RNA sequence: CAUGUCGUUUUCUAGGGUUCCGCGGCGUUCAACUGCCGGCCUGGUCCAAGAGAAAACACACAGCGAAUACGCUGUGGUCACGGAGGGGGAAAAGCCCGGGAGUC
Numbered sequence: 001c002a003u004g005u006c007g008u009u010u011u012c013u014a015g016g017g018u019u020c021c022g023c024g025g026c027g028u029u030c031a032a033c034u035g036c037c038g039g040c041c042u043g044g045u046c047c048a049a050g051a052g053a054a055a056a057c058a059c060a061c062a063g064c065g066a067a068u069a070c071g072c073u074g075u076g077g078u079c080a081c082g083g084a085g086g087g088g089g090a091a092a093a094g095c096c097c098g099g100g101a102g103u104c
Stems, first nucleotide, its partner, number of pairs: 007057006015047002020044002022041001023038005059076007079099001081102001085097003
This 104-nucleotide sequence from Paenibacillus ferrarius belongs to the Rfam family "Guanidine-I riboswitch aptamer". Pairs were carried over by alignment from the consensus structure. About the family: This family represents a conserved RNA structure found upstream of the ykkC and yxkD genes in Bacillus subtilis and related genes in other bacteria. Lineage of the source: Bacteria > Bacilli > Caryophanales > Paenibacillaceae > Paenibacillus.